[Rfam]
RNA sequence: AAAUUGCUUUGGAAUGACACGAUCACUCCCGCUGAGCAAGCAGCCAGAGCCAUCGGGAAUAUCGUGUCCGUCCAAAGCUUUUU
Numbered sequence: 001a002a003a004u005u006g007c008u009u010u011g012g013a014a015u016g017a018c019a020c021g022a023u024c025a026c027u028c029c030c031g032c033u034g035a036g037c038a039a040g041c042a043g044c045c046a047g048a049g050c051c052a053u054c055g056g057g058a059a060u061a062u063c064g065u066g067u068c069c070g071u072c073c074a075a076a077g078c079u080u081u082u083u
Stems, first nucleotide, its partner, number of pairs: 006078002009075004016068008027058005033052002036050002

The record is an 83-nucleotide RNA from Chrysemys picta, which matches "mir-425 microRNA precursor family" in Rfam. Lineage of the source: Eukaryota > Craniata > Sauropsida > Archelosauria > Chrysemys picta. Rfam links the family to the GO terms RISC complex and miRNA-mediated post-transcriptional gene silencing. For this family Rfam cites "MicroRNA transcriptome in the newborn mouse ovaries determined by massive parallel sequencing" (Ahn et al., Mol Hum Reprod, 2010). Rfam 15.1 lists 486 matches to the family in 482 species. It scores 98 bits against the family's covariance model. The base pairs follow the family's consensus structure, which was predicted with RNAalifold.